[Rfam]
RNA sequence: GGGUGGCAAGAAUGAUGAACCAAUUAGAUGUGUGAAUGGAGAAAUCCAUGAUCGAAAACACUUGAGGCUUAUUGAUAUUCUGACUUUGCCACUC
Numbered sequence: 001g002g003g004u005g006g007c008a009a010g011a012a013u014g015a016u017g018a019a020c021c022a023a024u025u026a027g028a029u030g031u032g033u034g035a036a037u038g039g040a041g042a043a044a045u046c047c048a049u050g051a052u053c054g055a056a057a058a059c060a061c062u063u064g065a066g067g068c069u070u071a072u073u074g075a076u077a078u079u080c081u082g083a084c085u086u087u088g089c090c091a092c093u094c
Base pairs, nucleotide, nucleotide: 001094002093003092004091005090006089007088008087009085010084
Small nucleolar RNA Z266: a 94-nucleotide RNA from Actinidia chinensis. By type it is a C/D-box small nucleolar RNA.